[Rfam]
RNA sequence: AUGGUAUUAUUUUGGCAAAUGGGGUCUUCAUAAAGCACACUGGGGAGGGGGAGUUUGGGUGCGAUUCCUCCAUUCUCACCCUCAGCCCACAAUUAAAACUGUUUGGCAGUGCUUUUACCAAAUAAGCUUUGCAUGGAAGACGAUCCAUCCUACAGAGCACUAUCUGCGGAGGCUUUUUUGGCUAAUGCACUGGCAAAUCGGCAAGUCACGAAAAGGGCAAUUAACUCAUAGUAAUUAGUAUGAGUCUG
Numbered sequence: 001a002u003g004g005u006a007u008u009a010u011u012u013u014g015g016c017a018a019a020u021g022g023g024g025u026c027u028u029c030a031u032a033a034a035g036c037a038c039a040c041u042g043g044g045g046a047g048g049g050g051g052a053g054u055u056u057g058g059g060u061g062c063g064a065u066u067c068c069u070c071c072a073u074u075c076u077c078a079c080c081c082u083c084a085g086c087c088c089a090c091a092a093u094u095a096a097a098a099c100u101g102u103u104u105g106g107c108a109g110u111g112c113u114u115u116u117a118c119c120a121a122a123u124a125a126g127c128u129u130u131g132c133a134u135g136g137a138a139g140a141c142g143a144u145c146c147a148u149c150c151u152a153c154a155g156a157g158c159a160c161u162a163u164c165u166g167c168g169g170a171g172g173c174u175u176u177u178u179u180g181g182c183u184a185a186u187g188c189a190c191u192g193g194c195a196a197a198u199c200g201g202c203a204a205g206u207c208a209c210g211a212a213a214a215g216g217g218c219a220a221u222u223a224a225c226u227c228a229u230a231g232u233a234a235u236u237a238g239u240a241u242g243a244g245u246c247u248g
Stems, first nucleotide, its partner, number of pairs: 042088003101198005121186001123185001224245007
A member of the RNA family "Early nodulin 40" from Gossypium anomalum, 248 nucleotides long. Gene Ontology term of the family: nodulation. On this family, see Gultyaev and Roussis, Nucleic Acids Res 2007: "Identification of conserved secondary structures and expansion segments in enod40 RNAs reveals new enod40 homologues in plants". The match comes from Rfam's covariance-model search (58 bits). The source organism's lineage runs through Eukaryota, Mesangiospermae, rosids, Malvaceae and Gossypium.